[Rfam]
RNA sequence: GGAGGUGCUGUAAACAUCCUUGACUGGAAGCUUGAGGCGAUACCAGUGAAGGCUUUCAGUCGGAUGUUUGCAGCGUCCUG
Numbered sequence: 001g002g003a004g005g006u007g008c009u010g011u012a013a014a015c016a017u018c019c020u021u022g023a024c025u026g027g028a029a030g031c032u033u034g035a036g037g038c039g040a041u042a043c044c045a046g047u048g049a050a051g052g053c054u055u056u057c058a059g060u061c062g063g064a065u066g067u068u069u070g071c072a073g074c075g076u077c078c079u080g
Base pairs, nucleotide, nucleotide: 002079004077005076006075008073009072010071011070012069013068014067015066016065017064018063019062023060024059025058026057027056028055029054030053031052032051